[Rfam]
RNA sequence: GGGGGGGGGGGGAGGUCCCUCAGCCUGGAUUGCAAGAGGGCACAGGCCAGUCCGAGGGAUCCCACCAGUGCAUG
Number, nucleotide and partner (000 for none) at each position: 001g071002g000003g069004g000005g000006g066007g065008g000009g063010g062011g000012g000013a000014g061015g060016u059017c058018c057019c056020u055021c054022a000023g052024c000025c050026u000027g048028g047029a000030u045031u044032g043033c000034a000035a000036g000037a000038g000039g000040g000041c000042a000043c032044a031045g030046g000047c028048c027049a000050g025051u000052c023053c000054g021055a020056g019057g018058g017059a016060u015061c014062c010063c009064a000065c007066c006067a000068g000069u003070g000071c001072a000073u000074g000
This 74-nucleotide sequence from Myotis davidii belongs to the Rfam family "mir-9193 microRNA precursor family".
The base pairs follow the family's consensus structure, which was predicted with RNAalifold.
The match comes from Rfam's covariance-model search (58 bits).